[Rfam]
RNA sequence: AUCGUGCUCCGGGACCCGGUGAAAUUCCGAACCGGCGGUGAUAGUCCGCUAACUUACGCGCAAGCGUGAGCCUGCUAGGUGAAAUUCCUAGACCGACAGUACAGUCUGGAUGGAAGGUAGCACGAA
Numbered sequence: 001a002u003c004g005u006g007c008u009c010c011g012g013g014a015c016c017c018g019g020u021g022a023a024a025u026u027c028c029g030a031a032c033c034g035g036c037g038g039u040g041a042u043a044g045u046c047c048g049c050u051a052a053c054u055u056a057c058g059c060g061c062a063a064g065c066g067u068g069a070g071c072c073u074g075c076u077a078g079g080u081g082a083a084a085u086u087c088c089u090a091g092a093c094c095g096a097c098a099g100u101a102c103a104g105u106c107u108g109g110a111u112g113g114a115a116g117g118u119a120g121c122a123c124g125a126a
Stems, first nucleotide, its partner, number of pairs: 003124006009117002017029003031105002033095002035049004044093002053070002075091005097108003
RNA: FMN riboswitch aptamer (RFN element)